[Rfam]
RNA sequence: AACUUAUCAAGAGCGGUGGAGGGACUGGCCCUGAGAAACCCAGCAACCGAGAAUCUUAAUGAUUCUUAAGGUGCUAAAUCCUGCAGGAGAUCCUGGAAGAUAAGGA
Numbered sequence: 001a002a003c004u005u006a007u008c009a010a011g012a013g014c015g016g017u018g019g020a021g022g023g024a025c026u027g028g029c030c031c032u033g034a035g036a037a038a039c040c041c042a043g044c045a046a047c048c049g050a051g052a053a054u055c056u057u058a059a060u061g062a063u064u065c066u067u068a069a070g071g072u073g074c075u076a077a078a079u080c081c082u083g084c085a086g087g088a089g090a091u092c093c094u095g096g097a098a099g100a101u102a103a104g105g106a
Base pairs, nucleotide, nucleotide: 003104004103005102006101007100008099013041015040016039017038021031022030023029025083027081028080042075043074044073045072047071048070049067050066051065052064053063054062079098084095085094086093087092
RNA: SAM riboswitch aptamer (S box leader)
Organism: Clostridium isatidis